[Rfam]
RNA: Small nucleolar RNA SNORA27
Organism: Polypterus senegalus
RNA sequence: CCUUCCCCUUUCACUUUGCCAGGUGGACUUUGUGUCCUUUUUGGCCAUUCUUUAGGGGUAUAAAAAAAAUCCUUAUAAAAACCCAAGCAAAUUUCACUGUAUGUUUAGCUUGGUUCCUGUCUGAGGAGACACGG
Numbered sequence: 001c002c003u004u005c006c007c008c009u010u011u012c013a014c015u016u017u018g019c020c021a022g023g024u025g026g027a028c029u030u031u032g033u034g035u036c037c038u039u040u041u042u043g044g045c046c047a048u049u050c051u052u053u054a055g056g057g058g059u060a061u062a063a064a065a066a067a068a069a070u071c072c073u074u075a076u077a078a079a080a081a082c083c084c085a086a087g088c089a090a091a092u093u094u095c096a097c098u099g100u101a102u103g104u105u106u107a108g109c110u111u112g113g114u115u116c117c118u119g120u121c122u123g124a125g126g127a128g129a130c131a132c133g134g
Stems, first nucleotide, its partner, number of pairs: 033060005043050002070127006084112001085110001089106004